Description:
Small nucleolar RNA SNORD19: a 72-nucleotide RNA sequence from Penelope pileata. The family has 22 seed sequences and 1,431 matches in Rfam 15.1. Its family is annotated with nucleolus and RNA processing in the Gene Ontology. By type it is a C/D-box small nucleolar RNA. A reference for the family is Huttenhofer et al. (2001), "RNomics: an experimental approach that identifies 201 candidates for novel, small, non-messenger RNAs in mouse", EMBO J.
RNA sequence: GAGUUGUGAAGAAGAUUUUAAAGGAAUCUGAGCUUCCACUGAAGCAUAAGGUCCAACUCUGAGCUCACUGCC
Number, nucleotide and partner (000 for none) at each position: 001g066002a065003g064004u063005u000006g000007u000008g000009a000010a000011g000012a000013a000014g000015a000016u000017u000018u000019u000020a000021a000022a000023g000024g000025a000026a000027u000028c000029u000030g000031a000032g000033c000034u000035u000036c000037c000038a000039c000040u000041g000042a000043a000044g000045c000046a000047u000048a000049a000050g000051g000052u000053c000054c000055a000056a000057c000058u000059c000060u000061g000062a000063g004064c003065u002066c001067a000068c000069u000070g000071c000072c000

The pairing is the family consensus, mapped onto this sequence. The source organism's lineage runs through Eukaryota, Vertebrata, Gnathostomata, Saurischia and Penelope.